[Rfam]
The record is a 97-nucleotide RNA sequence from Smithella sp. F21, which matches "Group II catalytic intron D1-D4-1" in Rfam. Rfam describes the family as follows. Group II introns are found in rRNA, tRNA and mRNA of organelles in fungi, plants and protists, and also in mRNA in bacteria. Pairs were carried over by alignment from the consensus structure. Its family is annotated with Group II intron splicing in the Gene Ontology. The organism belongs to Smithella, within Bacteria.
RNA sequence: CCUUACCCGGGGAGACCCCGAUUAUGAAAGUAGUUGGGGAGUCAGCAGAGGCCGUAGUAGCGAAGACGCCCGUUGAAAGACGGGAAGAGCGAAGGGC
Numbered sequence: 001c002c003u004u005a006c007c008c009g010g011g012g013a014g015a016c017c018c019c020g021a022u023u024a025u026g027a028a029a030g031u032a033g034u035u036g037g038g039g040a041g042u043c044a045g046c047a048g049a050g051g052c053c054g055u056a057g058u059a060g061c062g063a064a065g066a067c068g069c070c071c072g073u074u075g076a077a078a079g080a081c082g083g084g085a086a087g088a089g090c091g092a093a094g095g096g097c
Stems, first nucleotide, its partner, number of pairs: 001026001005022001007020001009018003042049002051097003060090002069084003